[Rfam]
The record is a 72-nucleotide RNA from Oceanicella actignis, which matches "tRNA" in Rfam. NCBI's taxonomy places the organism under Bacteria, Pseudomonadati, Pseudomonadota, Rhodobacterales, Oceanicella. It is annotated as a transfer RNA. Pairs were carried over by alignment from the consensus structure, which is taken from published work.
RNA sequence: UCCGGCGUAGCUCAGUGGUAGAGCAUCGGACUGUUAAUCCGCUGGUCGCAGGUUCGAAUCCUGCCGCCGGAG
Numbered sequence: 001u002c003c004g005g006c007g008u009a010g011c012u013c014a015g016u017g018g019u020a021g022a023g024c025a026u027c028g029g030a031c032u033g034u035u036a037a038u039c040c041g042c043u044g045g046u047c048g049c050a051g052g053u054u055c056g057a058a059u060c061c062u063g064c065c066g067c068c069g070g071a072g
Base pairs, nucleotide, nucleotide: 001071002070003069004068005067006066007065010024011023012022013021027041028040029039030038048064049063050062051061052060